[Rfam]
RNA sequence: UUCAUAACCAUAGAUCUGUGCCCACAGCGCUCCCACGCCUCGGUGUGGUUGCAGUGCUCGUGGUGCAAUUCGACGCAUCCUAUGGAGCCAUCUAUCUGCAUUCCCAUGAUGUCAAUCUUCCCGUCGACAGAUCUAAGAACAAGACUCUCGCACGGCUUUGCUUGAAUUCUUCGUGAGUUCGCUGGCCGUGUUGGGACGUGCGCCUUAUUCUAUCCGUUCUCGAGUCGGCAAUUUGUCGGUGAGGAUUAAGGGGGAAACCAAGGCAGCAUAUAUUA
Dot-bracket structure: ...........((((((((((((..((.((((((((((...).)))))..).))).))...)).)).......((...(...(((.(.(..................).).)))........).))))))))))..........((....((((((.(.((..((((((.....)))))))).)))))))..))....((((((((......(((.(..((.....((((...)))).....))....).)))......))))).))).......
RNA: A. fumigatus sRNA Afu_309
Organism: Verruconis gallopava